[Rfam]
The record is a 64-nucleotide RNA from Caproicibacter fermentans, which matches "Fluoride riboswitch aptamer (crcB RNA motif)" in Rfam.
RNA sequence: AAUUAAAACGGCGAUGAAGUUCGCCUUUUAUCCCAGCUCCGGGGUUAAUGACUUCUAUUAUUUU
Number, nucleotide and partner (000 for none) at each position: 001a000002a000003u000004u000005a000006a000007a000008a000009c000010g025011g024012c023013g022014a000015u000016g055017a054018a053019g052020u051021u050022c013023g012024c011025c010026u000027u000028u000029u000030a000031u000032c000033c000034c000035a000036g000037c000038u000039c000040c000041g000042g000043g000044g000045u000046u000047a000048a000049u000050g021051a020052c019053u018054u017055c016056u000057a000058u000059u000060a000061u000062u000063u000064u000